[Rfam]
RNA sequence: GCCUACCGACAAAUGUCGCACGGGUACCGAAAUGAACAUUUUCAAAAAAAUACUAAAUAAUGAAUUCGGUCGACACGUACCCCGUUCCCUAUGUCUAUUUGCGAGAUAGAGAGAAGAAAGACAAAGUAAGGUAGCGCCCUUGUAGUAAUGCAGGCGGCAGGAG
Numbered sequence: 001g002c003c004u005a006c007c008g009a010c011a012a013a014u015g016u017c018g019c020a021c022g023g024g025u026a027c028c029g030a031a032a033u034g035a036a037c038a039u040u041u042u043c044a045a046a047a048a049a050a051u052a053c054u055a056a057a058u059a060a061u062g063a064a065u066u067c068g069g070u071c072g073a074c075a076c077g078u079a080c081c082c083c084g085u086u087c088c089c090u091a092u093g094u095c096u097a098u099u100u101g102c103g104a105g106a107u108a109g110a111g112a113g114a115a116g117a118a119a120g121a122c123a124a125a126g127u128a129a130g131g132u133a134g135c136g137c138c139c140u141u142g143u144a145g146u147a148a149u150g151c152a153g154g155c156g157g158c159a160g161g162a163g
Stems, first nucleotide, its partner, number of pairs: 003134005014123004022082006085115003136158003140154002142151003